[Rfam]
RNA sequence: UUGCACGAAGCACCCCGGGAUUUGCUGAAGAACUCCGUGACAACGGAAGCCCCAAUGCUCGUGCCAGAUAGAUUCGCCGUUCCGUGUUGCAGUUCUGUUCACGAAUUCCUACGACCGAUCUUUGUCAAUGUAUCGGCUAAACUU
Numbered sequence: 001u002u003g004c005a006c007g008a009a010g011c012a013c014c015c016c017g018g019g020a021u022u023u024g025c026u027g028a029a030g031a032a033c034u035c036c037g038u039g040a041c042a043a044c045g046g047a048a049g050c051c052c053c054a055a056u057g058c059u060c061g062u063g064c065c066a067g068a069u070a071g072a073u074u075c076g077c078c079g080u081u082c083c084g085u086g087u088u089g090c091a092g093u094u095c096u097g098u099u100c101a102c103g104a105a106u107u108c109c110u111a112c113g114a115c116c117g118a119u120c121u122u123u124g125u126c127a128a129u130g131u132a133u134c135g136g137c138u139a140a141a142c143u144u
Base pairs, nucleotide, nucleotide: 003064004063005062006061007060008059010058011057017052018051019050021048022046023045024041076137077136078135079134081132085127086126088124089123091121092120097115098114099113

This 144-nucleotide sequence from Phoenix dactylifera belongs to the Rfam family "small nucleolar RNA snoR134". The family's consensus secondary structure was predicted with RNAalifold. NCBI's taxonomy places the organism under Eukaryota, Viridiplantae, Tracheophyta, Magnoliopsida, Phoenix. Rfam links the family to the GO terms nucleolus and RNA processing. Rfam classes the family as an H/ACA-box small nucleolar RNA. The match comes from Rfam's covariance-model search (70 bits).